[Rfam]
RNA sequence: AUAGGAAUAAGGAUAUUAAGUGUCACGUGUCAUGUUCUUAUUAACUAUGCAUUUUAUCGUUCAUAAAAUCAACAUCCAAUCAGAACAUGAUAUGUAACGGUCAUCGUCC
Numbered sequence: 001a002u003a004g005g006a007a008u009a010a011g012g013a014u015a016u017u018a019a020g021u022g023u024c025a026c027g028u029g030u031c032a033u034g035u036u037c038u039u040a041u042u043a044a045c046u047a048u049g050c051a052u053u054u055u056a057u058c059g060u061u062c063a064u065a066a067a068a069u070c071a072a073c074a075u076c077c078a079a080u081c082a083g084a085a086c087a088u089g090a091u092a093u094g095u096a097a098c099g100g101u102c103a104u105c106g107u108c109c
Base pairs, nucleotide, nucleotide: 022098023097025095027093028092031089032088033087035085036084037083038082040080041079042078
MIR1520 microRNA precursor family: a 109-nucleotide sequence from Glycine soja. The match comes from Rfam's covariance-model search (64 bits). The family has 18 seed sequences and 1,934 matches in Rfam 15.1. Rfam links the family to the GO terms miRNA-mediated post-transcriptional gene silencing and RISC complex. The family's consensus secondary structure was predicted with RNAalifold. Clan: MIR1520 microRNA precursor clan.